About this RNA
The family of this 137-nucleotide sequence from Leptotrichia wadei is "manA_II ncRNA motif". On this family, see Narunsky et al., Nucleic Acids Res 2024: "The discovery of novel noncoding RNAs in 50 bacterial genomes". manA_II ncRNA motif was reported as a strong cis regulatory motif candidate, with potential to be a strong riboswitch candidate, it being reported in Leptotrichia species, upstream of manA gene, which codes for mannose-6-phosphate isomerase and pflA gene, which codes for a glycil-radical enzyme activating protein. Rfam links the family to the GO term regulation of gene expression. By type it is a cis-regulatory element.
RNA sequence: CAUGAUCGGGAGUGGUGUCCAAAUGAAACAGGAUAUAGUCAACUUGUGGUUAUUUACUACAUCCUAAGCAGAAGAUAACACCCCAAAAUGAAAAAAUAAUUUUCCCCCUGCAAUUAUUAUUUAUUGCAGAUUUUUUU
Number, nucleotide and partner (000 for none) at each position: 001c000002a000003u000004g000005a000006u000007c000008g000009g084010g083011a000012g081013u080014g000015g000016u000017g000018u000019c000020c000021a000022a000023a000024u000025g000026a000027a039028a000029c038030a000031g000032g036033a000034u000035a000036u032037a000038g029039u027040c000041a000042a000043c000044u000045u000046g000047u000048g000049g079050u078051u077052a076053u075054u074055u073056a000057c071058u070059a000060c068061a000062u000063c000064c000065u000066a000067a000068g060069c000070a058071g057072a000073a055074g054075a053076u052077a051078a050079c049080a013081c012082c000083c010084c009085a000086a000087a000088a000089u000090g105091a000092a103093a102094a101095a000096a000097u000098a000099a000100u000101u094102u093103u092104c000105c090106c000107c000108c129109u128110g127111c126112a125113a124114u000115u000116a000117u000118u000119a000120u000121u000122u000123a000124u113125u112126g111127c110128a109129g108130a000131u000132u000133u000134u000135u000136u000137u000
The sequence is in the family's curated seed alignment.